[Rfam]
RNA: Glycine riboswitch aptamer
RNA sequence: GCACCCGUCCCGGGAGAAUCCGGCCCCCGCCGGUGCCGAAGGAGCAACCGCCCCGGUAAACUCUCAGGCCUCAGGACCGCGGACGGAAC
Numbered sequence: 001g002c003a004c005c006c007g008u009c010c011c012g013g014g015a016g017a018a019u020c021c022g023g024c025c026c027c028c029g030c031c032g033g034u035g036c037c038g039a040a041g042g043a044g045c046a047a048c049c050g051c052c053c054c055g056g057u058a059a060a061c062u063c064u065c066a067g068g069c070c071u072c073a074g075g076a077c078c079g080c081g082g083a084c085g086g087a088a089c
Stems, first nucleotide, its partner, number of pairs: 006085005011079003020033004035069003038065002042063003048056002